[Rfam]
RNA: Small nucleolar RNA SNORA29
RNA sequence: CUUCCCAUUUGACUACUACUUAUUCGAAUUACAGAAUAAGUGGCUAUGCUUAUGGGAUAGAGAAAAAACUGCCAAAGUCUGAAGGAGAAGAUUGAUCAUAUCUUUUUUCCUAUAUGAAAUGGCAGAACAUGAUAUA
Numbered sequence: 001c002u003u004c005c006c007a008u009u010u011g012a013c014u015a016c017u018a019c020u021u022a023u024u025c026g027a028a029u030u031a032c033a034g035a036a037u038a039a040g041u042g043g044c045u046a047u048g049c050u051u052a053u054g055g056g057a058u059a060g061a062g063a064a065a066a067a068a069c070u071g072c073c074a075a076a077g078u079c080u081g082a083a084g085g086a087g088a089a090g091a092u093u094g095a096u097c098a099u100a101u102c103u104u105u106u107u108u109c110c111u112a113u114a115u116g117a118a119a120u121g122g123c124a125g126a127a128c129a130u131g132a133u134a135u136a
Base pairs, nucleotide, nucleotide: 004056005055006054007053016043017042018041019040071123072122073121074120089111090110091108